[Rfam]
The family of this 48-nucleotide RNA from Asparagus officinalis is "Plastid-ccsA-ndhD-2 3UTR RNA". On this family, see Richter et al., Plant Commun 2023: "Retrograde signaling in plants: A critical review focusing on the GUN pathway and beyond". Rfam 15.1 lists 875 matches to the family in 517 species. It is annotated as a cis-regulatory element. Rfam describes the family as follows. Plastid ccsA-ndhD-2 is a non-coding RNA (ncRNA) recognised in plastids. It was found in the three prime untranslated region (3UTR) of ccsA and ndhD genes, its 3UTR location suggests a role in transcript maturation.

RNA sequence: UUUUUGAGAACCAUUUGAAUCAAGGAAUCAUUCAAAUGGUUCUCAAAA
Numbered sequence: 001u002u003u004u005u006g007a008g009a010a011c012c013a014u015u016u017g018a019a020u021c022a023a024g025g026a027a028u029c030a031u032u033c034a035a036a037u038g039g040u041u042c043u044c045a046a047a048a
Base pairs, nucleotide, nucleotide: 004046005045006044007043008042009041010040011039012038013037014036015035016034017033018032019031020030022028